Nucleotides: 109
Stems, first nucleotide, its partner, number of pairs: 001109001003107002005100001056073002059070001
Number, partner (000 for none) and nucleotide at each position: 001109a002000a003107c004106c005100a006000u007000g008000a009000u010000g011000a012000g013000g014000g015000a016000a017000c018000c019000u020000u021000a022000a023000c024000a025000a026000u027000u028000u029000u030000u031000c032000u033000u034000u035000a036000a037000a038000a039000c040000g041000u042000u043000c044000u045000c046000a047000u048000g049000c050000u051000u052000c053000g054000u055000a056073a057072a058000a059070a060000a061000u062000u063000u064000c065000u066000c067000c068000a069000u070059u071000u072057u073056u074000u075000u076000g077000a078000a079000g080000g081000a082000a083000a084000u085000c086000a087000g088000a089000g090000a091000u092000a093000u094000c095000a096000g097000g098000u099000u100005u101000u102000a103000a104000a105000a106004g107003g108000u109001u

Source information: Shown here is a 109-nucleotide RNA sequence from Kingdonia uniflora, a member of the family "Plant small nucleolar RNA R71". Rfam 15.1 lists 278,378 matches to the family in 216 species. The literature on the family includes a 2003 paper in Trends Plant Sci by Brown et al., "Plant snoRNAs: functional evolution and new modes of gene expression".